[Rfam]
RNA sequence: CCGUGCUAGAUGGGGAGGUAGCGGUGCCCUGCACCCGCAAUCCGCUAUAGCGGGGUUGAAUUCCUGCCCGAGGGUUUGGCUUGUGGGGUCCGGCUCCUGUAAGGGGUGUUGACGAUUGGGUCUUGCGCGACGGAGCCUUUCGAACCGUGUCAGGUCCUGACGGAAGCAGCACUAAGGAAGUUUCUCCGGGUGCCGCAAGGGCGCCUGAUCCGAGCUACCUGCCGGAGUAACGCCUGGAAGUCAAUAUUCGACGGCAGGUGCACGG
Number, nucleotide and partner (000 for none) at each position: 001c265002c264003g263004u262005g261006c260007u000008a000009g057010a056011u055012g030013g029014g028015g027016a000017g025018g000019u023020a000021g000022c000023g019024g000025u017026g000027c015028c014029c013030u012031g000032c000033a000034c054035c053036c052037g051038c050039a000040a000041u000042c000043c000044g000045c000046u000047a000048u000049a000050g038051c037052g036053g035054g034055g011056u010057u009058g000059a000060a000061u000062u000063c258064c257065u256066g255067c254068c253069c000070g000071a000072g249073g248074g247075u246076u000077u000078g242079g241080c240081u239082u238083g000084u236085g235086g234087g233088g000089u000090c000091c232092g231093g000094c000095u226096c225097c224098u000099g222100u221101a000102a000103g219104g218105g216106g215107u214108g000109u000110u000111g000112a000113c000114g210115a209116u208117u207118g206119g205120g204121u203122c199123u198124u197125g196126c195127g194128c190129g000130a000131c188132g187133g186134a185135g184136c000137c180138u179139u178140u177141c176142g000143a000144a000145c000146c000147g172148u171149g170150u169151c000152a000153g000154g000155u164156c163157c162158u000159g000160a000161c000162g157163g156164a155165a000166g000167c000168a000169g150170c149171a148172c147173u000174a000175a000176g141177g140178a139179a138180g137181u000182u000183u000184c135185u134186c133187c132188g131189g000190g128191u000192g000193c000194c127195g126196c125197a124198a123199g122200g000201g000202c000203g121204c120205c119206u118207g117208a116209u115210c114211c000212g000213a000214g107215c106216u105217a000218c104219c103220u000221g100222c099223c000224g097225g096226a095227g000228u000229a000230a000231c092232g091233c087234c086235u085236g084237g000238a082239a081240g080241u079242c078243a000244a000245u000246a075247u074248u073249c072250g000251a000252c000253g068254g067255c066256a065257g064258g063259u000260g006261c005262a004263c003264g002265g001
Bacterial large signal recognition particle RNA: a 265-nucleotide sequence from Desulfoscipio geothermicus. Gene Ontology terms of the family: signal recognition particle, plasma membrane targeting and SRP-dependent cotranslational protein targeting to membrane, signal sequence recognition. It scores 214 bits against the family's covariance model. The family's RNA type in Rfam is non-coding RNA gene. The family is grouped with related families in Rfam's "SRP clan".